[Rfam]
RNA sequence: AUAAUGAUACACUUGCAUAGCCACAGCUCGAACGUGAUAAAACCGUCGCAAGCAAUGGGUGCAACUCGGACAGAGUCGGAGUGGUGAAAUUCCAGUGG
Numbered sequence: 001a002u003a004a005u006g007a008u009a010c011a012c013u014u015g016c017a018u019a020g021c022c023a024c025a026g027c028u029c030g031a032a033c034g035u036g037a038u039a040a041a042a043c044c045g046u047c048g049c050a051a052g053c054a055a056u057g058g059g060u061g062c063a064a065c066u067c068g069g070a071c072a073g074a075g076u077c078g079g080a081g082u083g084g085u086g087a088a089a090u091u092c093c094a095g096u097g098g
Stems, first nucleotide, its partner, number of pairs: 012095001013064006065081003069077003082094003
The family of this 98-nucleotide sequence is "pemK RNA". The sequence is in the family's curated seed alignment.